The family of this 123-nucleotide RNA sequence from Mesorhizobium sp. J18 is "Alphaproteobacterial ar14". The organism belongs to Mesorhizobium, within Bacteria. Rfam's curators write: Smr14C2 was renamed NfeR1 (Nodule Formation Efficiency RNA) highly expressed in salt stress and during the symbiotic interaction on legume roots. By type it is a small RNA. Pairs were carried over by alignment from the consensus structure. A search with the family's covariance model found it, with a score of 97 bits.
[Rfam]
RNA sequence: GGAAUUUCGUCGGGGUUUUCCUCCUCCCAAACCUCGACGGAUACGGCUGGCAUUCUCCUCCUCCCGAUUGUCAGUCGGCCAAAACGACACCCGCCGGACCUCCUCCCCCGGCGGGUGUUGUUU
Numbered sequence: 001g002g003a004a005u006u007u008c009g010u011c012g013g014g015g016u017u018u019u020c021c022u023c024c025u026c027c028c029a030a031a032c033c034u035c036g037a038c039g040g041a042u043a044c045g046g047c048u049g050g051c052a053u054u055c056u057c058c059u060c061c062u063c064c065c066g067a068u069u070g071u072c073a074g075u076c077g078g079c080c081a082a083a084a085c086g087a088c089a090c091c092c093g094c095c096g097g098a099c100c101u102c103c104u105c106c107c108c109c110g111g112c113g114g115g116u117g118u119u120g121u122u123u
Base pairs, nucleotide, nucleotide: 007040008039009038011036012035013034014033015032016031017030045076046075047074048073049072050071051070052069054067087118088117089116090115091114092113093112094111095110096109097108